[Rfam]
RNA sequence: GUAGUAGGAUCUUCAACUUUUUGGAAUGUUCCAAACUC
Numbered sequence: 001g002u003a004g005u006a007g008g009a010u011c012u013u014c015a016a017c018u019u020u021u022u023g024g025a026a027u028g029u030u031c032c033a034a035a036c037u038c
Base pairs, nucleotide, nucleotide: 003018004017005016007014008013020035021034022033023032024031025030
RNA: Plastid psbT antisense RNA